[Rfam]
Background:
A member of the RNA family "mir-7 microRNA precursor family" from Grus americana, 91 nucleotides long. The family has 132 seed sequences and 2,589 matches in Rfam 15.1. It scores 68 bits against the family's covariance model. Rfam links the family to the GO terms RISC complex and miRNA-mediated post-transcriptional gene silencing. Lineage of the source: Eukaryota > Metazoa > Deuterostomia > Coelurosauria > Grus. The base pairs follow the family's consensus structure, which was predicted with PFOLD.
Nucleotides: 091
Base pairs, nucleotide, nucleotide: 002090006086008085009084011082012081013080014079017076018075020073021072022071023070024069026068027067028066029065030064031063032062034061035060036059037058038057
Number, partner (000 for none) and nucleotide at each position: 001000g002090u003000g004000c005000c006086u007000g008085g009084c010000u011082c012081c013080c014079u015000c016000u017076g018075g019000a020073a021072g022071a023070c024069u025000a026068g027067u028066g029065a030064u031063u032062u033000u034061g035060u036059u037058g038057u039000u040000g041000u042000a043000u044000g045000g046000c047000u048000c049000a050000u051000c052000c053000c054000a055000c056000c057038a058037c059036a060035a061034c062032a063031a064030g065029u066028c067027a068026c069024a070023g071022u072021c073020u074000g075018c076017c077000c078000u079014a080013g081012g082011g083000u084009g085008c086006a087000a088000u089000g090002g091000c

Annotation:
Rfam's curators write: This family represents the microRNA (miRNA) precursor mir-7.